[Rfam]
RNA: mir-9193 microRNA precursor family
Organism: Pipistrellus kuhlii
Nucleotides: 077
Stems, first nucleotide, its partner, number of pairs: 003075002006072001008070003012066002015063001019062010031050001033048003
Number, partner (000 for none) and nucleotide at each position: 001000c002000u003075u004074g005000g006072g007000u008070g009069g010068g011000g012066g013065g014000a015063g016000g017000u018000a019062u020061c021060c022059c023058u024057c025056a026055g027054c028053c029000c030000a031050g032000a033048u034047u035046g036000c037000a038000a039000g040000a041000a042000g043000g044000c045000a046035c047034a048033g049000g050031c051000c052000g053028g054027g055026c056025u057024g058023a059022g060021g061020g062019a063015c064000c065013c066012c067000a068010c069009c070008u071000g072006u073000g074004c075003a076000c077000c